[Rfam]
Small nucleolar RNA SNORD67: a 113-nucleotide RNA from Oryzias melastigma. It scores 84 bits against the family's covariance model. NCBI's taxonomy places the organism under Eukaryota, Ctenosquamata, Adrianichthyoidei, Oryziinae, Oryzias. snoRNA HBII-166 belongs to the C/D family of snoRNAs. Its family is annotated with RNA processing and nucleolus in the Gene Ontology. It is annotated as a C/D-box small nucleolar RNA. For this family Rfam cites "RNomics: an experimental approach that identifies 201 candidates for novel, small, non-messenger RNAs in mouse" (Huttenhofer et al., EMBO J, 2001).

Nucleotides: 113
Stems, first nucleotide, its partner, number of pairs: 006110003028064001029062004034057003039052005
Number, partner (000 for none) and nucleotide at each position: 001000u002000u003000u004000g005000a006110g007109a008108g009000u010000g011000a012000u013000g014000a015000g016000u017000u018000g019000c020000a021000c022000u023000g024000a025000a026000a027000a028064g029062u030061u031060g032059g033000c034057g035056u036055g037000u038000g039052g040051u041050u042049g043048c044000g045000g046000u047000g048043g049042c050041a051040a052039u053000a054000g055036c056035a057034c058000c059032c060031c061030a062029a063000c064028c065000c066000g067000a068000u069000c070000c071000a072000c073000u074000c075000u076000g077000g078000g079000g080000a081000c082000a083000c084000a085000c086000c087000a088000c089000g090000u091000g092000c093000a094000c095000a096000g097000g098000g099000g100000c101000c102000a103000u104000c105000u106000g107000a108008c109007u110006c111000a112000a113000c